[Rfam]
A member of the RNA family "Y RNA" from Theropithecus gelada, 95 nucleotides long.
The match comes from Rfam's covariance-model search (47 bits).
The organism belongs to Theropithecus, within Eukaryota.
Rfam describes the family as follows. Y RNAs are components of the Ro ribonucleoprotein particle (Ro RNP), in association with Ro60 and La proteins.

RNA sequence: GGCUGGUCUGAGUGCAGUGGUGUUCACAACUAAUUGAGCACAACCAGUUUCCAAUUGGUUCCUUCUCCACUCCCACUGUUUCACCUGACUAUUAA
Numbered sequence: 001g002g003c004u005g006g007u008c009u010g011a012g013u014g015c016a017g018u019g020g021u022g023u024u025c026a027c028a029a030c031u032a033a034u035u036g037a038g039c040a041c042a043a044c045c046a047g048u049u050u051c052c053a054a055u056u057g058g059u060u061c062c063u064u065c066u067c068c069a070c071u072c073c074c075a076c077u078g079u080u081u082c083a084c085c086u087g088a089c090u091a092u093u094a095a
Stems, first nucleotide, its partner, number of pairs: 004091005010086001014082001016077005022072001028060003032056004